tRNA: an 83-nucleotide RNA sequence from Phycomyces blakesleeanus. Rfam's curators write: Transfer RNA (tRNA) molecules are approximately 80 nucleotides in length. A search with the family's covariance model found it, with a score of 59 bits. It is annotated as a transfer RNA. The base pairs follow the family's consensus structure, which is taken from published work.
[Rfam]
RNA sequence: GGUAACUUGGCCGAGUUGGUCUAAGGCGCCGCACUCAAGUUGCGGUCUCGAAAGAGGCGUGAGUUCGAAUCUCACAGUUACCA
Numbered sequence: 001g002g003u004a005a006c007u008u009g010g011c012c013g014a015g016u017u018g019g020u021c022u023a024a025g026g027c028g029c030c031g032c033a034c035u036c037a038a039g040u041u042g043c044g045g046u047c048u049c050g051a052a053a054g055a056g057g058c059g060u061g062a063g064u065u066c067g068a069a070u071c072u073c074a075c076a077g078u079u080a081c082c083a
Stems, first nucleotide, its partner, number of pairs: 001082007010027003029045005059075005